[Rfam]
RNA sequence: UAAUCUAUAUGUGGCAAAUUUUUAUCUAAUUGUGAUAGAUCCACACCUAACUGCUCAGAAACACUUGUUAUUAUAAGCUCGACUAUAUUAUUGACACUGGAAAAUAGAUGACAACUACUGUGUGAUUAAUAAUUAUUUAAGAU
Number, nucleotide and partner (000 for none) at each position: 001u000002a000003a000004u141005c000006u139007a138008u000009a000010u000011g000012u132013g000014g130015c000016a000017a000018a126019u125020u000021u000022u000023u122024a121025u120026c000027u117028a116029a000030u114031u113032g000033u000034g000035a000036u000037a000038g000039a000040u000041c000042c000043a000044c000045a000046c000047c000048u000049a000050a000051c000052u000053g000054c000055u000056c000057a000058g000059a000060a000061a000062c000063a000064c000065u000066u000067g000068u000069u000070a000071u000072u000073a000074u000075a000076a000077g000078c000079u000080c000081g000082a000083c000084u000085a000086u000087a000088u000089u000090a000091u000092u000093g000094a000095c000096a000097c000098u000099g000100g000101a000102a000103a000104a000105u000106a000107g000108a000109u000110g000111a000112c000113a031114a030115c000116u028117a027118c000119u000120g025121u024122g023123u000124g000125a019126u018127u000128a000129a000130u014131a000132a012133u000134u000135a000136u000137u000138u007139a006140a000141g004142a000143u000